[Rfam]
RNA sequence: AUCACCUGGGGAUCUUGUGAAACUGUAGAUUCUGAUUCAGUAGGUCUGGGGCUGGGCCCCAGAUUCUGCAUUUCUCAAAAGCUCUCAGGUGAUGAGAG
Number, nucleotide and partner (000 for none) at each position: 001a000002u000003c091004a090005c089006c000007u000008g000009g085010g084011g083012a000013u000014c081015u080016u079017g000018u077019g076020a075021a073022a072023c000024u000025g069026u068027a067028g066029a065030u000031u063032c062033u061034g000035a000036u000037u000038c000039a000040g000041u000042a000043g000044g000045u000046c000047u000048g000049g000050g000051g000052c000053u000054g000055g000056g000057c000058c000059c000060c000061a033062g032063a031064u000065u029066c028067u027068g026069c025070a000071u000072u022073u021074c000075u020076c019077a018078a000079a016080a015081g014082c000083u011084c010085u009086c000087a000088g000089g005090u004091g003092a000093u000094g000095a000096g000097a000098g000